[Rfam]
RNA sequence: AGCCUAAACCAGUGAGUAAUCACUGGCAUGGUGAAGAAGUCUGAUUAGAGCCAAAGAACCCAUCAUAUAGGGUUUGCUCUAAUCAGCCAUAUCGGGAAACUGGUAUGGAGGGUUAAAACCCUC
Number, nucleotide and partner (000 for none) at each position: 001a000002g032003c031004c030005u000006a000007a000008a000009c026010c025011a024012g023013u022014g021015a020016g000017u000018a000019a000020u015021c014022a013023c012024u011025g010026g009027c000028a000029u000030g004031g003032u002033g000034a000035a000036g000037a000038a000039g000040u000041c086042u085043g084044a083045u082046u081047a080048g079049a078050g077051c076052c000053a000054a000055a000056g075057a074058a073059c072060c071061c070062a000063u000064c000065a000066u000067a000068u000069a000070g061071g060072g059073u058074u057075u056076g051077c050078u049079c048080u047081a046082a045083u044084c043085a042086g041087c000088c107089a106090u105091a104092u103093c102094g101095g100096g000097a000098a000099a000100c095101u094102g093103g092104u091105a090106u089107g088108g123109a122110g121111g120112g119113u118114u000115a000116a000117a000118a113119c112120c111121c110122u109123c108
The record is a 123-nucleotide sequence, which matches "LOOT RNA" in Rfam.
The sequence is in the family's curated seed alignment.